RNA sequence: GCCCGGGCCACGGCCCCCCAACGGGCCGCGUCCCUUCUGCGAGGGAGGGUUUC
Numbered sequence: 001g002c003c004c005g006g007g008c009c010a011c012g013g014c015c016c017c018c019c020a021a022c023g024g025g026c027c028g029c030g031u032c033c034c035u036u037c038u039g040c041g042a043g044g045g046a047g048g049g050u051u052u053c
Stems, first nucleotide, its partner, number of pairs: 011028006033048006